[Rfam]
RNA sequence: UGGUGCGUGCCGUGUGGGGAGGUCCCUUGCUAACUAACCCUAAUGGCGCCCGCGCUCCCUUCGCCUGCCCGCUGUUUUAUUCGCUGACUUUCAGCGGGCGAGGGGAGCGCCCGGGGGGGUGGGGGGAGGCGGAGGAGGAAAGGGGUCCGGCAUUAAAAAAUGUCAGCGAGGGGGCUCCUCACCCCGGCCCGCUCUGGGGUCCCCGUCCCGCAGCCCUGAGCGCUCCCGCCGCCGCGCCGCACGGAGGCCGCGGUCGGCCGGCCCAGGGCCAUUGCCGCCGCGAAGAGCUCGUCUCUGUCAGCCUCGGCGGCGGCCGGGAGAAAAGAGGCGGUCCCCCCCCAGCCCCGGGCAGUCGGGGGUCCCAGCAGAGCAAACCGGGAGCGGCGCCGCCGGGCUGGGCAGCCGCGGCUCCCUCAGCCGUGGGGUGCGCGGCCGGCGCCGCCCCGACACCC
Numbered sequence: 001u002g003g004u005g006c007g008u009g010c011c012g013u014g015u016g017g018g019g020a021g022g023u024c025c026c027u028u029g030c031u032a033a034c035u036a037a038c039c040c041u042a043a044u045g046g047c048g049c050c051c052g053c054g055c056u057c058c059c060u061u062c063g064c065c066u067g068c069c070c071g072c073u074g075u076u077u078u079a080u081u082c083g084c085u086g087a088c089u090u091u092c093a094g095c096g097g098g099c100g101a102g103g104g105g106a107g108c109g110c111c112c113g114g115g116g117g118g119g120u121g122g123g124g125g126g127a128g129g130c131g132g133a134g135g136a137g138g139a140a141a142g143g144g145g146u147c148c149g150g151c152a153u154u155a156a157a158a159a160a161u162g163u164c165a166g167c168g169a170g171g172g173g174g175c176u177c178c179u180c181a182c183c184c185c186g187g188c189c190c191g192c193u194c195u196g197g198g199g200u201c202c203c204c205g206u207c208c209c210g211c212a213g214c215c216c217u218g219a220g221c222g223c224u225c226c227c228g229c230c231g232c233c234g235c236g237c238c239g240c241a242c243g244g245a246g247g248c249c250g251c252g253g254u255c256g257g258c259c260g261g262c263c264c265a266g267g268g269c270c271a272u273u274g275c276c277g278c279c280g281c282g283a284a285g286a287g288c289u290c291g292u293c294u295c296u297g298u299c300a301g302c303c304u305c306g307g308c309g310g311c312g313g314c315c316g317g318g319a320g321a322a323a324a325g326a327g328g329c330g331g332u333c334c335c336c337c338c339c340c341a342g343c344c345c346c347g348g349g350c351a352g353u354c355g356g357g358g359g360u361c362c363c364a365g366c367a368g369a370g371c372a373a374a375c376c377g378g379g380a381g382c383g384g385c386g387c388c389g390c391c392g393g394g395c396u397g398g399g400c401a402g403c404c405g406c407g408g409c410u411c412c413c414u415c416a417g418c419c420g421u422g423g424g425g426u427g428c429g430c431g432g433c434c435g436g437c438g439c440c441g442c443c444c445c446g447a448c449a450c451c452c
Stems, first nucleotide, its partner, number of pairs: 005192003009188004014182006021176005054108005066100009083167006089160003194365007225313002233307001249282005255277004260270003284296004379444001381442008403432005410425004